Description
This 84-nucleotide RNA sequence from Saccharibacillus brassicae belongs to the Rfam family "c-di-GMP-I riboswitch aptamer". The source organism's lineage runs through Bacteria, Bacilli, Caryophanales, Paenibacillaceae and Saccharibacillus. From the family's description: GEMM was predicted in a large-scale screen for bacterial structured RNA regulatory elements. For this family Rfam cites "Identification of 22 candidate structured RNAs in bacteria using the CMfinder comparative genomics pipeline" (Weinberg et al., Nucleic Acids Res, 2007). The family's consensus secondary structure is taken from published work.
[Rfam]
RNA sequence: ACCCGAAAAAGGCAAACCCGAUUGAAAAACGGGGGCGCAAAGCUAUAGGGCCUUACCCGCAGGGGAUGGCAGCCAGCUAUCGAA
Numbered sequence: 001a002c003c004c005g006a007a008a009a010a011g012g013c014a015a016a017c018c019c020g021a022u023u024g025a026a027a028a029a030c031g032g033g034g035g036c037g038c039a040a041a042g043c044u045a046u047a048g049g050g051c052c053u054u055a056c057c058c059g060c061a062g063g064g065g066a067u068g069g070c071a072g073c074c075a076g077c078u079a080u081c082g083a084a
Stems, first nucleotide, its partner, number of pairs: 012038002017033004022029002041078004048074002050070003057064002